[Rfam]
RNA sequence: GUUGCUUAGGUCUGUGGUUGAAAGUCGAUGCCAGUCGCAGGCGAAACGAUCCACGUAAGGAAUUCAAAGAAUUCUGAUCAUGGUGCGGCUUAGAGAUAAGACCUGCCGGCUUUAAGUAAUUAAAGUACAUAAUAGCCGAGAGUGUUAGUAGUGAGGGUUUAAUUUCUAUUAGCGAAACCUCCAGCAGGCGAGUGUGGGGUCAAAGACCAGGUCAGCUGAGCAAU
Dot-bracket structure: (((((((((..((((((((........((([.(((((((.]........((...(..((((.((....)).))))..)..[)))))))))...........((((((((((......................)))))...(.(......((....(........).....)).....).)..)))))....)))......]..)))))...))))))))))))
RNA: raiA RNA